[Rfam]
RNA sequence: GGGGUGUGCUCAGAGCAGGUGGCCUGAAGCAUGACUUCUUUGCUUACAACACACCCAAGAGGAACUUAGGGUCAUUGUGACAAGAGCUACUAAAACUUGUGACUUCCCUCUGAUCAAAUGUCCUACACAU
Numbered sequence: 001g002g003g004g005u006g007u008g009c010u011c012a013g014a015g016c017a018g019g020u021g022g023c024c025u026g027a028a029g030c031a032u033g034a035c036u037u038c039u040u041u042g043c044u045u046a047c048a049a050c051a052c053a054c055c056c057a058a059g060a061g062g063a064a065c066u067u068a069g070g071g072u073c074a075u076u077g078u079g080a081c082a083a084g085a086g087c088u089a090c091u092a093a094a095a096c097u098u099g100u101g102a103c104u105u106c107c108c109u110c111u112g113a114u115c116a117a118a119u120g121u122c123c124u125a126c127a128c129a130u
Base pairs, nucleotide, nucleotide: 002056003055004054005053006052007051008050013045014044015043016042017041018040019039021037022035024033069123070122071121072120076116077115081112082111084105085104086103088101089100090099092097

The family of this 130-nucleotide sequence from Chinchilla lanigera is "Small nucleolar RNA SNORA11". About the family: U107 (SNORA11) is a member of the H/ACA class of snoRNAs that guide the sites of modification of uridines to pseudouridines. This snoRNA was identified by RT-PCR from blood cells and its expression confirmed by Northern blot analysis. There is no predicted target for this guide snRNA. The source organism's lineage runs through Eukaryota, Craniata, Tetrapoda, Chinchillidae and Chinchilla.